[Rfam]
RNA sequence: GAAAUCUCAUGGGGGUGCCCGGCAGACCCGGGCUGAGAGGCGCGGCCAACCCCUCGAACCUGAUCCGGGUCGUGCCGGCGGAGGGAUUGAGAUGAGCGACGAU
Numbered sequence: 001g002a003a004a005u006c007u008c009a010u011g012g013g014g015g016u017g018c019c020c021g022g023c024a025g026a027c028c029c030g031g032g033c034u035g036a037g038a039g040g041c042g043c044g045g046c047c048a049a050c051c052c053c054u055c056g057a058a059c060c061u062g063a064u065c066c067g068g069g070u071c072g073u074g075c076c077g078g079c080g081g082a083g084g085g086a087u088u089g090a091g092a093u094g095a096g097c098g099a100c101g102a103u
Stems, first nucleotide, its partner, number of pairs: 006091004011053004017033005040046002059084003065078004
Rfam assigns this 103-nucleotide RNA from Siculibacillus lacustris to the family "TPP riboswitch aptamer (THI element)". Rfam's curators write: Vitamin B(1) in its active form thiamin pyrophosphate (TPP) is an essential coenzyme that is synthesised by coupling of pyrimidine and thiazole moieties in bacteria. Taxonomically the source falls in Siculibacillus (Bacteria, Pseudomonadati, Pseudomonadota, Alphaproteobacteria).